[Rfam]
RNA: S4-Clostridia ribosomal protein leader
RNA sequence: GAAAGGUUGUGUUUUAGCGCACAACUGGAUGCGUACAUACCGGCAUCCCAAUUAGG
Numbered sequence: 001g002a003a004a005g006g007u008u009g010u011g012u013u014u015u016a017g018c019g020c021a022c023a024a025c026u027g028g029a030u031g032c033g034u035a036c037a038u039a040c041c042g043g044c045a046u047c048c049c050a051a052u053u054a055g056g
Stems, first nucleotide, its partner, number of pairs: 005026008027048006